This 85-nucleotide RNA sequence from Leucobacter edaphi belongs to the Rfam family "ZMP/ZTP riboswitch aptamer (pfl RNA motif)".
A search with the family's covariance model found it, with a score of 47 bits.
Taxonomically the source falls in Leucobacter (Bacteria, Bacillati, Actinomycetota, Actinomycetes).
Gene Ontology terms of the family: one-carbon metabolic process and regulation of purine nucleotide biosynthetic process.
[Rfam]
RNA sequence: UGGAAAGGUCGUGACUGGCGUACAGAUGGUCACCAUCGGGGAACGACAACUCGUCAGGAAAUGGCCGCUCGCCUGGGUCUGAGAA
Numbered sequence: 001u002g003g004a005a006a007g008g009u010c011g012u013g014a015c016u017g018g019c020g021u022a023c024a025g026a027u028g029g030u031c032a033c034c035a036u037c038g039g040g041g042a043a044c045g046a047c048a049a050c051u052c053g054u055c056a057g058g059a060a061a062u063g064g065c066c067g068c069u070c071g072c073c074u075g076g077g078u079c080u081g082a083g084a085a
Base pairs, nucleotide, nucleotide: 003052004051008047009046010045011044012043015040016039017073018072019071020070026036027035028034029033063079064078065077066076